About this RNA: Shown here is a 62-nucleotide RNA sequence from Rhodanobacter thiooxydans, a member of the family "Fluoride riboswitch aptamer (crcB RNA motif)". Taxonomically the source falls in Rhodanobacter (Bacteria, Pseudomonadati, Gammaproteobacteria, Rhodanobacteraceae). The base pairs follow the family's consensus structure, which is taken from published work.
[Rfam]
RNA sequence: AAGCGCAUGGGCGAUGGAGUUCGCCUACGAUCGCCUCUAGGGCUGAUGACUCCUGCAGUGAC
Numbered sequence: 001a002a003g004c005g006c007a008u009g010g011g012c013g014a015u016g017g018a019g020u021u022c023g024c025c026u027a028c029g030a031u032c033g034c035c036u037c038u039a040g041g042g043c044u045g046a047u048g049a050c051u052c053c054u055g056c057a058g059u060g061a062c
Stems, first nucleotide, its partner, number of pairs: 010025004016053006033043003